Rfam assigns this 84-nucleotide RNA from Galactobacter caseinivorans to the family "ZMP/ZTP riboswitch aptamer (pfl RNA motif)".
Rfam links the family to the GO terms regulation of purine nucleotide biosynthetic process and one-carbon metabolic process.
Taxonomically the source falls in Galactobacter (Bacteria, Bacillati, Actinomycetes, Micrococcaceae).
A search with the family's covariance model found it, with a score of 54 bits.
[Rfam]
RNA sequence: UGGUGACGUCGCGACUGGCGUGAGGUGGAGCACCACCGGGGAGCGGCACCUGUGUCAGCCGGACCGAACGCCUGGGUCCGGCCC
Numbered sequence: 001u002g003g004u005g006a007c008g009u010c011g012c013g014a015c016u017g018g019c020g021u022g023a024g025g026u027g028g029a030g031c032a033c034c035a036c037c038g039g040g041g042a043g044c045g046g047c048a049c050c051u052g053u054g055u056c057a058g059c060c061g062g063a064c065c066g067a068a069c070g071c072c073u074g075g076g077u078c079c080g081g082c083c084c
Stems, first nucleotide, its partner, number of pairs: 005050001008047005015040002017072005025036004061079005